[Rfam]
RNA sequence: AAGUCGGCAAAUCAGAUCCGUAACUUCGGGAUAAGGAUUGGCUCUAAGGGCUGGGUCGGUCGGGCCGGGGUGCGAAGCGGGGCUGGCUCCGUGUCGCGGCUGGGGGAGCCGCCGUCUCGUCCGCUGUCUCAUGGUCGCCCGCCGGAAGCGUUGCGGUUGCGGCCGGGGCCUCGGUGCUGGGUGCGUGCUCGCGUUUCGGCGCGGGUUCCGCCUCGGUGCCGGGUCCUGGUCGUGGACCCUCUGCGGAAGGUGGGAAAGACGGGGGCUGGCGGGCCGGGGCGGCCGGUGACUCUGGACGCGCGUCGGGGUCUUCUCGCGGAUCGCCCAGGCUAGGCGCUCGUCGGGGCCCUCGGGUCCCGGCGGGUCGCUGCGGCUGGCGCCUAGCAGCUGACUUAGAACUGGUGCGGACCAG
Numbered sequence: 001a002a003g004u005c006g007g008c009a010a011a012u013c014a015g016a017u018c019c020g021u022a023a024c025u026u027c028g029g030g031a032u033a034a035g036g037a038u039u040g041g042c043u044c045u046a047a048g049g050g051c052u053g054g055g056u057c058g059g060u061c062g063g064g065c066c067g068g069g070g071u072g073c074g075a076a077g078c079g080g081g082g083c084u085g086g087c088u089c090c091g092u093g094u095c096g097c098g099g100c101u102g103g104g105g106g107a108g109c110c111g112c113c114g115u116c117u118c119g120u121c122c123g124c125u126g127u128c129u130c131a132u133g134g135u136c137g138c139c140c141g142c143c144g145g146a147a148g149c150g151u152u153g154c155g156g157u158u159g160c161g162g163c164c165g166g167g168g169c170c171u172c173g174g175u176g177c178u179g180g181g182u183g184c185g186u187g188c189u190c191g192c193g194u195u196u197c198g199g200c201g202c203g204g205g206u207u208c209c210g211c212c213u214c215g216g217u218g219c220c221g222g223g224u225c226c227u228g229g230u231c232g233u234g235g236a237c238c239c240u241c242u243g244c245g246g247a248a249g250g251u252g253g254g255a256a257a258g259a260c261g262g263g264g265g266c267u268g269g270c271g272g273g274c275c276g277g278g279g280c281g282g283c284c285g286g287u288g289a290c291u292c293u294g295g296a297c298g299c300g301c302g303u304c305g306g307g308g309u310c311u312u313c314u315c316g317c318g319g320a321u322c323g324c325c326c327a328g329g330c331u332a333g334g335c336g337c338u339c340g341u342c343g344g345g346g347c348c349c350u351c352g353g354g355u356c357c358c359g360g361c362g363g364g365u366c367g368c369u370g371c372g373g374c375u376g377g378c379g380c381c382u383a384g385c386a387g388c389u390g391a392c393u394u395a396g397a398a399c400u401g402g403u404g405c406g407g408a409c410c411a412g
Stems, first nucleotide, its partner, number of pairs: 015039005024029001040400002043397006049389005055378008064230003068226004077217002080214001081212003085208002088205009098195003103190003107186001401405001
Background: The record is a 412-nucleotide part of an RNA from Gasterosteus aculeatus, which matches "Eukaryotic large subunit ribosomal RNA" in Rfam. Rfam's curators put it in the seed alignment.